The family of this 117-nucleotide RNA sequence from Kocuria flava is "SAM (S-adenosyl methionine) riboswitch aptamer".
RNA sequence: GAUGACGAGUCCCAGCACCGAGCCCUGGCUUGCUGGGCGGCAACCCUCUCCCGUAGUGGGGUGCCCCAGGUGAACCAUCCGGCCACGGCCGACGACGGCCGGCGGCAAGUACGGCUC
Numbered sequence: 001g002a003u004g005a006c007g008a009g010u011c012c013c014a015g016c017a018c019c020g021a022g023c024c025c026u027g028g029c030u031u032g033c034u035g036g037g038c039g040g041c042a043a044c045c046c047u048c049u050c051c052c053g054u055a056g057u058g059g060g061g062u063g064c065c066c067c068a069g070g071u072g073a074a075c076c077a078u079c080c081g082g083c084c085a086c087g088g089c090c091g092a093c094g095a096c097g098g099c100c101g102g103c104g105g106c107a108a109g110u111a112c113g114g115c116u117c
Stems, first nucleotide, its partner, number of pairs: 001079004009038001011037006021030002039065003044061003048056002082106003086101006
The organism belongs to Kocuria, within Bacteria.